The family of this 234-nucleotide RNA sequence from Anaeroplasma bactoclasticum is "Group II catalytic intron D1-D4-6". The family has 174 seed sequences and 1,617 matches in Rfam 15.1.
[Rfam]
RNA sequence: CAAAUCCCAUCUUGUAAAGUCUAGCCAACAGCAAGUACCGAGUCCUUGGAGCCGAAGUGGCAACAUUAGGUUUAAGCGUAGGAUAGGGAGCAUACGAGCCGUAAUGCGUAAGCGUGAAACUGUUAGCCUCGUUAGAUAUAAUAAAAUGAAAGCUGAUACUCUCACCAAAGUAGCAAGCAGUAAUAAUAAAUCGAUAUGGCAAGAUUUAAUAGGUUUCAUCGGGGUUUCAAAGUG
Numbered sequence: 001c002a003a004a005u006c007c008c009a010u011c012u013u014g015u016a017a018a019g020u021c022u023a024g025c026c027a028a029c030a031g032c033a034a035g036u037a038c039c040g041a042g043u044c045c046u047u048g049g050a051g052c053c054g055a056a057g058u059g060g061c062a063a064c065a066u067u068a069g070g071u072u073u074a075a076g077c078g079u080a081g082g083a084u085a086g087g088g089a090g091c092a093u094a095c096g097a098g099c100c101g102u103a104a105u106g107c108g109u110a111a112g113c114g115u116g117a118a119a120c121u122g123u124u125a126g127c128c129u130c131g132u133u134a135g136a137u138a139u140a141a142u143a144a145a146a147u148g149a150a151a152g153c154u155g156a157u158a159c160u161c162u163c164a165c166c167a168a169a170g171u172a173g174c175a176a177g178c179a180g181u182a183a184u185a186a187u188a189a190a191u192c193g194a195u196a197u198g199g200c201a202a203g204a205u206u207u208a209a210u211a212g213g214u215u216u217c218a219u220c221g222g223g224g225u226u227u228c229a230a231a232g233u234g
Base pairs, nucleotide, nucleotide: 011035012034013033014032019029020028022202024200025199038087039086042084044082045081046080047078048077049073050072051071052070053069055067056066058065059064126225127224128223129222130221131220146219147218148217149216150215151214152178153177154176157172158171159170160169184211185210187208188207189206190205191204192203

NCBI's taxonomy places the organism under Bacteria, Mycoplasmatota, Anaeroplasmatales, Anaeroplasmataceae, Anaeroplasma.
Its family is annotated with Group II intron splicing in the Gene Ontology.